[Rfam]
RNA: Small nucleolar RNA SNORA68
RNA sequence: GUAGCACCUAAACCCAAGAAUCGCUGUUUCUUAUAGCAGUGGUUUAAACAGAGGUGCCAACAGCACUUUUGGGGGCGGUUGUCAUGCCCCUCCAAGUGAAUUUGGAGGUCA
Numbered sequence: 001g002u003a004g005c006a007c008c009u010a011a012a013c014c015c016a017a018g019a020a021u022c023g024c025u026g027u028u029u030c031u032u033a034u035a036g037c038a039g040u041g042g043u044u045u046a047a048a049c050a051g052a053g054g055u056g057c058c059a060a061c062a063g064c065a066c067u068u069u070u071g072g073g074g075g076c077g078g079u080u081g082u083c084a085u086g087c088c089c090c091u092c093c094a095a096g097u098g099a100a101u102u103u104g105g106a107g108g109u110c111a
Base pairs, nucleotide, nucleotide: 002059004057005056006055007054008053009052019044020043021042022041023040024039025038026037027036028035066096067095068094071091072090073089074088075087076086